[Rfam]
RNA sequence: CUCUCCGAAAUAUAUUUAGGUAUAGCGUUGUGUCGUAACUAAAGGGGGUAGAGCACUGAAUGGGCUAGGGCAUACACCAAUGUACCAAACCCUAUCAAACUCCGAAUACCUUUAGUGUAAUCACAGCAGUCAGGCGGCGAGUGAUAAAAUCCGUCGUCAAGAGGGAAACAACCCAGACUAACAGCUAAGGUCCCCAAAUCUCAUUUAAGUGGAAAACGAUGUGAAGUUACUUAAACAACCAGGAGGUUGGCUUAGAAGCAGCCAUCCUUUAAAGAAAGCGUAAUAGCUCACUGGUCUAGUGAUUUUGCGCGGAAAAUAUAACGGGGCUAAAAUGAGUACCGAAGCUUUAGACUUGCACCUAGUGCAAGUGGUAGGAGAGCGUUCUAUUUGCGUUGAAGGUAUACCGGUAAGGAGUGCUGGAGCGAAUAGAAGUGAGCAU
Numbered sequence: 001c002u003c004u005c006c007g008a009a010a011u012a013u014a015u016u017u018a019g020g021u022a023u024a025g026c027g028u029u030g031u032g033u034c035g036u037a038a039c040u041a042a043a044g045g046g047g048g049u050a051g052a053g054c055a056c057u058g059a060a061u062g063g064g065c066u067a068g069g070g071c072a073u074a075c076a077c078c079a080a081u082g083u084a085c086c087a088a089a090c091c092c093u094a095u096c097a098a099a100c101u102c103c104g105a106a107u108a109c110c111u112u113u114a115g116u117g118u119a120a121u122c123a124c125a126g127c128a129g130u131c132a133g134g135c136g137g138c139g140a141g142u143g144a145u146a147a148a149a150u151c152c153g154u155c156g157u158c159a160a161g162a163g164g165g166a167a168a169c170a171a172c173c174c175a176g177a178c179u180a181a182c183a184g185c186u187a188a189g190g191u192c193c194c195c196a197a198a199u200c201u202c203a204u205u206u207a208a209g210u211g212g213a214a215a216a217c218g219a220u221g222u223g224a225a226g227u228u229a230c231u232u233a234a235a236c237a238a239c240c241a242g243g244a245g246g247u248u249g250g251c252u253u254a255g256a257a258g259c260a261g262c263c264a265u266c267c268u269u270u271a272a273a274g275a276a277a278g279c280g281u282a283a284u285a286g287c288u289c290a291c292u293g294g295u296c297u298a299g300u301g302a303u304u305u306u307g308c309g310c311g312g313a314a315a316a317u318a319u320a321a322c323g324g325g326g327c328u329a330a331a332a333u334g335a336g337u338a339c340c341g342a343a344g345c346u347u348u349a350g351a352c353u354u355g356c357a358c359c360u361a362g363u364g365c366a367a368g369u370g371g372u373a374g375g376a377g378a379g380c381g382u383u384c385u386a387u388u389u390g391c392g393u394u395g396a397a398g399g400u401a402u403a404c405c406g407g408u409a410a411g412g413a414g415u416g417c418u419g420g421a422g423c424g425a426a427u428a429g430a431a432g433u434g435a436g437c438a439u
Stems, first nucleotide, its partner, number of pairs: 001379006011024005026129001027127006036120001038116008051103001052101002057097003062092003068086002070083004133158007141150002163174003178350004183346003189340003198337001200336006217311002221308010238295005244268003249263003269273001274289001278287002351369008380434001382431010398418005404412002
Dot-bracket structure: ((((((....(((((....))))).(((((((...(.((((((((.....(((...(((..(((...((((((......)))).))...)))..)))..)).).....))))))))...).)))))).)...(((((((.((......)).)))))))....(((......)))...((((.(((...(((......(.((((((...........((..((((((((((.......(((((.(((..(((.........)))..)))(...)(...((......)).).)))))...)))))))))).))...................))))))))))...)))))))((((((((...))))))))....))))))(.((((((((((......(((((.((.....)).)))))...))))))))))..).....
RNA: Bacterial large subunit ribosomal RNA, nucleotides 835 to 1273
Organism: Campylobacter sp. MIT 12-5580